[Rfam]
RNA sequence: AUAACUUGCUAGGGGUGCCAAUAUGGCUGAGAGGUUUAAUACUAACCCUUGUACCUGAUCUGGAUAAUGCCAGCGUAGGAAAGCUUUAUGAAAUAUAA
Numbered sequence: 001a002u003a004a005c006u007u008g009c010u011a012g013g014g015g016u017g018c019c020a021a022u023a024u025g026g027c028u029g030a031g032a033g034g035u036u037u038a039a040u041a042c043u044a045a046c047c048c049u050u051g052u053a054c055c056u057g058a059u060c061u062g063g064a065u066a067a068u069g070c071c072a073g074c075g076u077a078g079g080a081a082a083g084c085u086u087u088a089u090g091a092a093a094u095a096u097a098a
Stems, first nucleotide, its partner, number of pairs: 008084003011049004017027004034042002054079004060073004

Record summary: Shown here is a 98-nucleotide RNA from Clostridium cylindrosporum, a member of the family "TPP riboswitch aptamer (THI element)". The base pairs follow the family's consensus structure, which is taken from published work. Lineage of the source: Bacteria > Bacillati > Clostridia > Eubacteriales > Clostridium cylindrosporum.